[Rfam]
RNA sequence: UCUGUGGAUUAGGUAGUUUCAUGUUGUUGGGCUCUUGUUGCAAUCACAAGAACAUCAAACUGCCUGAUUUACUGC
Dot-bracket structure: ...((((((((((((((((..((((.(((.(.............).))).))))..))))))))))))))))...
Shown here is a 75-nucleotide RNA from Cettia cetti, a member of the family "mir-196 microRNA precursor family". The family has 84 seed sequences and 1,813 matches in Rfam 15.1.